[Rfam]
RNA sequence: CUAUGACUCUCUUAAGGUAGCCAAAUGCCUCGUCAUUAACUAAUAUAGGUGACGAAAAGCUAGCUGCGUGCGGUGGCAGCACGAUAAACAGUCUAGCUAGUUGCUCUGCGCGAGCAGCGACACUGUCAAAUUGCGGGAACCUCCUAAAGAUCCUACUACCAAGUUGUGUUUGAAAGAGCACGAUGGCCGAGCUAACAGCCCUGGGUACGGUAAAAAUGUAGGAUAUGAACUCGCGAGAGUGAAAUGGACGAUCCGCAGCCAAGCUCCUACGGCGAGUUUUAUUGGUUGAGCAGCUGUUUUCUUAAAGUGACAGCUGUAACCUUAAAUUGCUAUGGAGAAGGUUCAGAGACUAGACGGCAGUGGGUCGAAAGGCUUAAGAUAUAGUCCACGCCGGCUCGAAAGAGCUGG
Numbered sequence: 001c002u003a004u005g006a007c008u009c010u011c012u013u014a015a016g017g018u019a020g021c022c023a024a025a026u027g028c029c030u031c032g033u034c035a036u037u038a039a040c041u042a043a044u045a046u047a048g049g050u051g052a053c054g055a056a057a058a059g060c061u062a063g064c065u066g067c068g069u070g071c072g073g074u075g076g077c078a079g080c081a082c083g084a085u086a087a088a089c090a091g092u093c094u095a096g097c098u099a100g101u102u103g104c105u106c107u108g109c110g111c112g113a114g115c116a117g118c119g120a121c122a123c124u125g126u127c128a129a130a131u132u133g134c135g136g137g138a139a140c141c142u143c144c145u146a147a148a149g150a151u152c153c154u155a156c157u158a159c160c161a162a163g164u165u166g167u168g169u170u171u172g173a174a175a176g177a178g179c180a181c182g183a184u185g186g187c188c189g190a191g192c193u194a195a196c197a198g199c200c201c202u203g204g205g206u207a208c209g210g211u212a213a214a215a216a217u218g219u220a221g222g223a224u225a226u227g228a229a230c231u232c233g234c235g236a237g238a239g240u241g242a243a244a245u246g247g248a249c250g251a252u253c254c255g256c257a258g259c260c261a262a263g264c265u266c267c268u269a270c271g272g273c274g275a276g277u278u279u280u281a282u283u284g285g286u287u288g289a290g291c292a293g294c295u296g297u298u299u300u301c302u303u304a305a306a307g308u309g310a311c312a313g314c315u316g317u318a319a320c321c322u323u324a325a326a327u328u329g330c331u332a333u334g335g336a337g338a339a340g341g342u343u344c345a346g347a348g349a350c351u352a353g354a355c356g357g358c359a360g361u362g363g364g365u366c367g368a369a370a371g372g373c374u375u376a377a378g379a380u381a382u383a384g385u386c387c388a389c390g391c392c393g394g395c396u397c398g399a400a401a402g403a404g405c406u407g408g
Base pairs, nucleotide, nucleotide: 005022007020008019010017011016121362122361123360124359125358127356132257133256134255135254136253137252142248143247144246258342259341264337265336266335267334272330273329274328275327346387348386349385350384351383352382364373365372366371393406394405395404396403397402

Rfam assigns this 408-nucleotide RNA sequence from Tortispora caseinolytica to the family "Group I catalytic intron". The source organism's lineage runs through Eukaryota, Trigonopsidomycetes, Trigonopsidales, Tortispora and Tortispora caseinolytica. It scores 89 bits against the family's covariance model. The literature on the family includes a 1990 paper in Annu Rev Biochem by Cech, "Self-splicing of group I introns". Rfam describes the family as follows. Group I catalytic introns are large self-splicing ribozymes. They catalyse their own excision from mRNA, tRNA and rRNA precursors in a wide range of organisms.